Rfam assigns this 93-nucleotide RNA from Eragrostis curvula to the family "Small nucleolar RNA Z157/R69/R10".
Rfam classes the family as a C/D-box small nucleolar RNA.
A search with the family's covariance model found it, with a score of 86 bits.
[Rfam]
RNA sequence: AUUGGAGCGGUGAUGAGCAUUUUUUUGGACUAGAGUUUCUGAUACUGCUUCUGUAGUAUUUGAAGACUAACCCUUGGCUGUCUGAGCUCCUGA
Numbered sequence: 001a002u003u004g005g006a007g008c009g010g011u012g013a014u015g016a017g018c019a020u021u022u023u024u025u026u027g028g029a030c031u032a033g034a035g036u037u038u039c040u041g042a043u044a045c046u047g048c049u050u051c052u053g054u055a056g057u058a059u060u061u062g063a064a065g066a067c068u069a070a071c072c073c074u075u076g077g078c079u080g081u082c083u084g085a086g087c088u089c090c091u092g093a
Stems, first nucleotide, its partner, number of pairs: 002092001004090005036065004043058006

On this family, see Chen et al., Nucleic Acids Res 2003: "The high diversity of snoRNAs in plants: identification and comparative study of 120 snoRNA genes from Oryza sativa". NCBI's taxonomy places the organism under Eukaryota, Magnoliopsida, Petrosaviidae, Poaceae, Eragrostis. Rfam links the family to the GO terms nucleolus and RNA processing. Pairs were carried over by alignment from the consensus structure, which was predicted with PFOLD.